RNA sequence: GCCACAUGAUGUCACCUAGAUUGCACUAGCACUAUGUGCAAAGAUGACUUUUUAUCUAUCACCCAAUGACUGAUGGCU
Numbered sequence: 001g002c003c004a005c006a007u008g009a010u011g012u013c014a015c016c017u018a019g020a021u022u023g024c025a026c027u028a029g030c031a032c033u034a035u036g037u038g039c040a041a042a043g044a045u046g047a048c049u050u051u052u053u054a055u056c057u058a059u060c061a062c063c064c065a066a067u068g069a070c071u072g073a074u075g076g077c078u
Stems, first nucleotide, its partner, number of pairs: 001077004029039004
Small nucleolar RNA SNORD83: a 78-nucleotide RNA from Clupea harengus. The family has 7 seed sequences and 1,393 matches in Rfam 15.1. The organism belongs to Clupea, within Eukaryota. Rfam classes the family as a C/D-box small nucleolar RNA.